[Rfam]
RNA sequence: GGCAAGAGUAGAAGCGUUCAGCGAGCCGGUUUUUCCGGCCGCCCGGAAAUUGCUCUUGUG
Numbered sequence: 001g002g003c004a005a006g007a008g009u010a011g012a013a014g015c016g017u018u019c020a021g022c023g024a025g026c027c028g029g030u031u032u033u034u035c036c037g038g039c040c041g042c043c044c045g046g047a048a049a050u051u052g053c054u055c056u057u058g059u060g
Stems, first nucleotide, its partner, number of pairs: 005056006015045001018047002021042002025039005